[Rfam]
Nucleotides: 094
Stems, first nucleotide, its partner, number of pairs: 003092006013043005021032003026082004044074004049070002053065003078086001
Number, partner (000 for none) and nucleotide at each position: 001000g002000a003092u004091u005090c006089a007088u008087c009000c010000a011000g012000a013043g014042g015041a016040u017039c018000c019000g020000a021032g022031g023030g024000a025000c026082c027081u028080g029079g030023c031022c032021c033000a034000g035000c036000g037000a038000c039017g040016g041015u042014c043013c044074g045073g046072c047071a048000a049070c050069c051000u052000g053065c054064c055063c056000g057000a058000a059000g060000a061000a062000a063055g064054g065053g066000a067000a068000a069050g070049g071047u072046g073045c074044c075000a076000a077000c078086g079029c080028c081027a082026g083000g084000a085000a086078c087008g088007a089006u090005g091004a092003g093000g094000a